[Rfam]
RNA sequence: CCCACGACUUACGUCGUGGGCUAAGUGAUGGCGUCGCUACCGCGACU
Numbered sequence: 001c002c003c004a005c006g007a008c009u010u011a012c013g014u015c016g017u018g019g020g021c022u023a024a025g026u027g028a029u030g031g032c033g034u035c036g037c038u039a040c041c042g043c044g045a046c047u
Stems, first nucleotide, its partner, number of pairs: 001020008033046005
Shown here is a 47-nucleotide sequence from Novipirellula maiorica, a member of the family "Acido-Lenti-1 RNA". The match comes from Rfam's covariance-model search (47 bits). The family has 87 seed sequences and 2,607 matches in Rfam 15.1. The organism belongs to Novipirellula maiorica, within Bacteria.